[Rfam]
RNA sequence: UGCUUAUGAUGACUUAAAAUGUAUAAGAGUAGUGGACAGGAGUGGUUUCUGAGAACUUUUUUUUGCACUGAAGCA
Numbered sequence: 001u002g003c004u005u006a007u008g009a010u011g012a013c014u015u016a017a018a019a020u021g022u023a024u025a026a027g028a029g030u031a032g033u034g035g036a037c038a039g040g041a042g043u044g045g046u047u048u049c050u051g052a053g054a055a056c057u058u059u060u061u062u063u064u065g066c067a068c069u070g071a072a073g074c075a
Stems, first nucleotide, its partner, number of pairs: 001075004

The record is a 75-nucleotide RNA from Onychostoma macrolepis, which matches "Small nucleolar RNA SNORD75" in Rfam. On this family, see Galardi et al., Mol Cell Biol 2002: "Purified box C/D snoRNPs are able to reproduce site-specific 2'-O-methylation of target RNA in vitro". Taxonomically the source falls in Onychostoma (Eukaryota, Eumetazoa, Actinopterygii, Cyprinoidei). The base pairs follow the family's consensus structure, which was predicted with RNAalifold. Rfam 15.1 lists 767 matches to the family in 616 species. Rfam classes the family as a C/D-box small nucleolar RNA.